[Rfam]
A member of the RNA family "MAT2A 3'UTR stem loop E" from Eleutherodactylus coqui, 67 nucleotides long.
On this family, see Parker et al., Genome Res 2011: "New families of human regulatory RNA structures identified by comparative analysis of vertebrate genomes".
NCBI's taxonomy places the organism under Eukaryota, Eumetazoa, Teleostomi, Eleutherodactylinae, Eleutherodactylus.
By type it is a cis-regulatory element.
The match comes from Rfam's covariance-model search (60 bits).
RNA sequence: CCAGUCACCUCUGGCAUGCUAAGGUGUAGUACAGAAAAACCUUAGCCGUGCCCUGCAGAGGUCCUGG
Numbered sequence: 001c002c003a004g005u006c007a008c009c010u011c012u013g014g015c016a017u018g019c020u021a022a023g024g025u026g027u028a029g030u031a032c033a034g035a036a037a038a039a040c041c042u043u044a045g046c047c048g049u050g051c052c053c054u055g056c057a058g059a060g061g062u063c064c065u066g067g
Stems, first nucleotide, its partner, number of pairs: 001067004007062005014056003018052001019045007026032002